[Rfam]
RNA: Small nucleolar RNA Z107/R87
Nucleotides: 108
Base pairs, nucleotide, nucleotide: 001108002107003106004105005104006103
Number, partner (000 for none) and nucleotide at each position: 001108a002107a003106u004105u005104a006103c007000a008000g009000u010000g011000a012000c013000g014000a015000c016000u017000u018000c019000a020000c021000a022000a023000a024000u025000u026000c027000a028000a029000g030000c031000u032000c033000a034000a035000c036000a037000g038000a039000c040000c041000g042000g043000a044000u045000u046000g047000c048000a049000g050000g051000a052000a053000u054000u055000u056000c057000u058000c059000a060000c061000u062000c063000u064000u065000g066000a067000g068000a069000c070000u071000u072000c073000u074000u075000u076000u077000g078000c079000g080000u081000g082000u083000c084000g085000a086000a087000a088000a089000c090000c091000c092000c093000g094000c095000u096000g097000a098000a099000c100000u101000g102000a103006g104005u105004a106003a107002u108001u